[Rfam]
RNA sequence: UGAAAAAGGCAGAGGUAGCUUAAUUAAGCUUGAGAAAUACUCUUAGAACCUGAUCUAGUUAAUACUAGCGUAGGAAGUCCUUUAAAAGACAUUA
Numbered sequence: 001u002g003a004a005a006a007a008g009g010c011a012g013a014g015g016u017a018g019c020u021u022a023a024u025u026a027a028g029c030u031u032g033a034g035a036a037a038u039a040c041u042c043u044u045a046g047a048a049c050c051u052g053a054u055c056u057a058g059u060u061a062a063u064a065c066u067a068g069c070g071u072a073g074g075a076a077g078u079c080c081u082u083u084a085a086a087a088g089a090c091a092u093u094a
Base pairs, nucleotide, nucleotide: 006082007081008080009079011043012042013041014040016037017030018029019028020027021026049074050073051072052071055068056067057066058065

Shown here is a 94-nucleotide RNA sequence from Spiroplasma diminutum, a member of the family "TPP riboswitch aptamer (THI element)". Vitamin B(1) in its active form thiamin pyrophosphate (TPP) is an essential coenzyme that is synthesised by coupling of pyrimidine and thiazole moieties in bacteria. Pairs were carried over by alignment from the consensus structure, which is taken from published work. NCBI's taxonomy places the organism under Bacteria, Bacillati, Mycoplasmatota, Spiroplasma, Spiroplasma diminutum.